[Rfam]
RNA sequence: GGUACCUUUAAUUCAGUCCAGAGAGGCUGACAAGGACAGCGGAAAAAAUGAUCAUUGCUUUGGGUAGCCUGUGCGAAGGAUAUCCCAUGUUCAUUUAUGUAGAAAAAGCUUCUUGUCAGGUAAUUGGCAAGAAGCUUUUUCAU
Numbered sequence: 001g002g003u004a005c006c007u008u009u010a011a012u013u014c015a016g017u018c019c020a021g022a023g024a025g026g027c028u029g030a031c032a033a034g035g036a037c038a039g040c041g042g043a044a045a046a047a048a049u050g051a052u053c054a055u056u057g058c059u060u061u062g063g064g065u066a067g068c069c070u071g072u073g074c075g076a077a078g079g080a081u082a083u084c085c086c087a088u089g090u091u092c093a094u095u096u097a098u099g100u101a102g103a104a105a106a107a108g109c110u111u112c113u114u115g116u117c118a119g120g121u122a123a124u125u126g127g128c129a130a131g132a133a134g135c136u137u138u139u140u141c142a143u
Stems, first nucleotide, its partner, number of pairs: 005035004013030006044098001046096006053089003105138014